[Rfam]
RNA: Antizyme RNA frameshifting stimulation element
Organism: Myotis myotis
RNA sequence: UGAUGGUCCUCACCCACCCCUGAACAUCCCAGGUGGGCGAGGGAAUAGUCAGAGGAUC
Numbered sequence: 001u002g003a004u005g006g007u008c009c010u011c012a013c014c015c016a017c018c019c020c021u022g023a024a025c026a027u028c029c030c031a032g033g034u035g036g037g038c039g040a041g042g043g044a045a046u047a048g049u050c051a052g053a054g055g056a057u058c
Stems, first nucleotide, its partner, number of pairs: 007043005013037006026057004